RNA: U7 small nuclear RNA
Organism: Salmo trutta
RNA sequence: AAAUGAGCUCUUUUAGCAUUUCUCCAGUAGGUUUCCUCAAGGAGAAAGCCCCC
Numbered sequence: 001a002a003a004u005g006a007g008c009u010c011u012u013u014u015a016g017c018a019u020u021u022c023u024c025c026a027g028u029a030g031g032u033u034u035c036c037u038c039a040a041g042g043a044g045a046a047a048g049c050c051c052c053c
Stems, first nucleotide, its partner, number of pairs: 030050005036044003
Dot-bracket structure: .............................(((((.(((...))).)))))...